[Rfam]
RNA sequence: AGCUGAUCCGGGUCGACCGCGCGGGAAGCCAGCAGGUAGUCGCGCAUCACGAUGCCGUGCCUGCCCUC
Numbered sequence: 001a002g003c004u005g006a007u008c009c010g011g012g013u014c015g016a017c018c019g020c021g022c023g024g025g026a027a028g029c030c031a032g033c034a035g036g037u038a039g040u041c042g043c044g045c046a047u048c049a050c051g052a053u054g055c056c057g058u059g060c061c062u063g064c065c066c067u068c
Stems, first nucleotide, its partner, number of pairs: 004063002008059001011030003017025002035056004040052003044048001

Shown here is a 68-nucleotide RNA sequence from Streptomyces tsukubensis, a member of the family "ASdes TB sRNA". The family has 26 seed sequences and 1,192 matches in Rfam 15.1. It scores 67 bits against the family's covariance model. The family's RNA type in Rfam is small RNA.